[Rfam]
A member of the RNA family "Plastid-ycf2 5UTR RNA" from Capsicum annuum, 75 nucleotides long. On this family, see Richter et al., Plant Commun 2023: "Retrograde signaling in plants: A critical review focusing on the GUN pathway and beyond". The family has 204 seed sequences and 3,521 matches in Rfam 15.1. The source organism's lineage runs through Eukaryota, eudicotyledons, Pentapetalae, Capsiceae and Capsicum. Plastid ycf2 is a non-coding RNA (ncRNA) recognised in plastids. It was found in the prime untranslated region (5UTR) of ycf2 genes, it presents a tRNA-like motif which suggests it can be involved in mRNA maturation, particularly involved in defining the precise 5' end of the transcript.
RNA sequence: AUGCAUCCAGUAGGAAUUGAACCUAUGAAUUUUCCAACUAUGAGUUAGGUGCUUUAACCAUUCAUCCAUGGAUGC
Numbered sequence: 001a002u003g004c005a006u007c008c009a010g011u012a013g014g015a016a017u018u019g020a021a022c023c024u025a026u027g028a029a030u031u032u033u034c035c036a037a038c039u040a041u042g043a044g045u046u047a048g049g050u051g052c053u054u055u056a057a058c059c060a061u062u063c064a065u066c067c068a069u070g071g072a073u074g075c
Base pairs, nucleotide, nucleotide: 003075004074005073006072007071008070010026011025012024013023014022040069041068042067044066046064048062049061050060051059